[Rfam]
Bacillaceae-1 RNA: a 46-nucleotide sequence from Paenisporosarcina sp. HGH0030. A search with the family's covariance model found it, with a score of 39 bits.

RNA sequence: GACAAUGGAACGAAGGCUAACGCCUUUGUGACCAACAUCCUGUUGG
Numbered sequence: 001g002a003c004a005a006u007g008g009a010a011c012g013a014a015g016g017c018u019a020a021c022g023c024c025u026u027u028g029u030g031a032c033c034a035a036c037a038u039c040c041u042g043u044u045g046g
Stems, first nucleotide, its partner, number of pairs: 011028007032046005
The family's RNA type in Rfam is small RNA.